A member of the RNA family "MIR6217 microRNA precursor family" from Miscanthus lutarioriparius, 234 nucleotides long. The source organism's lineage runs through Eukaryota, Embryophyta, Liliopsida, Andropogoneae and Miscanthus. Its family is annotated with miRNA-mediated post-transcriptional gene silencing and RISC complex in the Gene Ontology.
RNA sequence: UGGCUACAAAAUAAGUUAUUUUGUAGCCAGCUACAUGGUAAUUAUCGUAAAUUAAUAUGUUAAUUUAUGAGAUUAUAAUAACUCCUUACUAAGUGGUUUACUGUAACGUUAUGGUAAAUAUCCCCAUGUGUUAUAGUAACUCAACUAUCGUAAAUAUGUAUUUACAUUAUCGUAAAUUAGUAUAUAAAAUUAUCGUAAAUGAAGGUGGCUACGGAAUAACUUAUUUUUUAGCUG
Numbered sequence: 001u002g003g004c005u006a007c008a009a010a011a012u013a014a015g016u017u018a019u020u021u022u023g024u025a026g027c028c029a030g031c032u033a034c035a036u037g038g039u040a041a042u043u044a045u046c047g048u049a050a051a052u053u054a055a056u057a058u059g060u061u062a063a064u065u066u067a068u069g070a071g072a073u074u075a076u077a078a079u080a081a082c083u084c085c086u087u088a089c090u091a092a093g094u095g096g097u098u099u100a101c102u103g104u105a106a107c108g109u110u111a112u113g114g115u116a117a118a119u120a121u122c123c124c125c126a127u128g129u130g131u132u133a134u135a136g137u138a139a140c141u142c143a144a145c146u147a148u149c150g151u152a153a154a155u156a157u158g159u160a161u162u163u164a165c166a167u168u169a170u171c172g173u174a175a176a177u178u179a180g181u182a183u184a185u186a187a188a189a190u191u192a193u194c195g196u197a198a199a200u201g202a203a204g205g206u207g208g209c210u211a212c213g214g215a216a217u218a219a220c221u222u223a224u225u226u227u228u229u230a231g232c233u234g
Stems, first nucleotide, its partner, number of pairs: 001234006008227022031204002042198003046195002050191004056184013071171003075167002078163001080161001086153004093148006099138011113123002